[Rfam]
RNA sequence: UCAGACUGAAAAUGAGCUCAGAUGUGACCGUGGUCUGAGCUCAAGAUACCUGAGCCAAAAGUACUCGGUACAUUAAGCUUAUCGCGUGCUCGGUCCGUCUGCACGCCGAUAAAACCCAUGUGCCUACAAAC
Numbered sequence: 001u002c003a004g005a006c007u008g009a010a011a012a013u014g015a016g017c018u019c020a021g022a023u024g025u026g027a028c029c030g031u032g033g034u035c036u037g038a039g040c041u042c043a044a045g046a047u048a049c050c051u052g053a054g055c056c057a058a059a060a061g062u063a064c065u066c067g068g069u070a071c072a073u074u075a076a077g078c079u080u081a082u083c084g085c086g087u088g089c090u091c092g093g094u095c096c097g098u099c100u101g102c103a104c105g106c107c108g109a110u111a112a113a114a115c116c117c118a119u120g121u122g123c124c125u126a127c128a129a130a131c
Base pairs, nucleotide, nucleotide: 006052008050010047013043014042015041016040021035022034023033067124069122070121071120072119073118079112080111081110082109083108087103088102089101
The family of this 131-nucleotide RNA from Salarias fasciatus is "Small nucleolar RNA ACA64".
The base pairs follow the family's consensus structure, which was predicted with WAR.
A reference for the family is Schattner et al. (2006), "A computational screen for mammalian pseudouridylation guide H/ACA RNAs", RNA.
The organism belongs to Salarias, within Eukaryota.
It scores 66 bits against the family's covariance model.